[Rfam]
Nucleotides: 072
Stems, first nucleotide, its partner, number of pairs: 003072001004069003
Number, partner (000 for none) and nucleotide at each position: 001000u002000g003072a004069u005068g006067u007000u008000g009000u010000g011000a012000u013000g014000a015000u016000u017000g018000g019000g020000a021000a022000a023000a024000u025000g026000u027000u028000c029000a030000a031000c032000u033000g034000c035000u036000c037000u038000g039000a040000g041000u042000u043000g044000g045000c046000u047000g048000a049000a050000u051000g052000a053000a054000a055000c056000u057000a058000c059000c060000c061000a062000u063000c064000u065000g066000a067006a068005c069004a070000g071000a072003u